[Rfam]
RNA sequence: UUCGAUAAGGGCAAACCAGCCGUGAGGCUGGGACGCAAAGCCAUCGGUCCGCAUACCGGAUAGCGAGGUUGCCGAAU
Numbered sequence: 001u002u003c004g005a006u007a008a009g010g011g012c013a014a015a016c017c018a019g020c021c022g023u024g025a026g027g028c029u030g031g032g033a034c035g036c037a038a039a040g041c042c043a044u045c046g047g048u049c050c051g052c053a054u055a056c057c058g059g060a061u062a063g064c065g066a067g068g069u070u071g072c073c074g075a076a077u
Stems, first nucleotide, its partner, number of pairs: 003074002011036002016031006034063001039070004044066003047061003